c-di-AMP riboswitch aptamer (ydaO/yuaA leader): a 156-nucleotide RNA sequence. This family represents a conserved RNA structure found upstream of the ydaO and yuaA genes in Bacillus subtilis and related genes in other bacteria. The ydaO/yuaA element is thought to act as a genetic 'off' switch for the ydaO and yuaA genes in its native state.
Nucleotides: 156
Base pairs, nucleotide, nucleotide: 001027002026003025028139029138030137031136032135033134038067039066068124069123070122076101077100078099079098104118105117106116107115
Number, partner (000 for none) and nucleotide at each position: 001027u002026u003025c004000c005000u006000g007000a008000a009000g010000a011000g012000a013000a014000a015000u016000c017000g018000c019000u020000u021000g022000g023000c024000a025003g026002a027001a028139g029138c030137g031136g032135g033134g034000g035000a036000a037000c038067c039066a040000u041000u042000a043000c044000c045000g046000g047000u048000c049000c050000c051000g052000g053000u054000g055000u056000a057000c058000c059000g060000g061000g062000g063000c064000c065000u066039u067038g068124g069123g070122g071000u072000u073000a074000a075000g076101c077100c078099g079098u080000g081000c082000a083000g084000a085000g086000c087000g088000c089000g090000u091000g092000c093000g094000u095000u096000c097000u098079g099078c100077g101076g102000c103000c104118g105117g106116g107115u108000g109000u110000c111000u112000c113000c114000c115107a116106c117105c118104c119000g120000c121000a122070u123069c124068c125000g126000a127000c128000a129000g130000c131000u132000c133000a134033c135032c136031u137030c138029g139028u140000a141000g142000g143000c144000a145000a146000a147000g148000g149000g150000a151000g152000g153000a154000a155000u156000c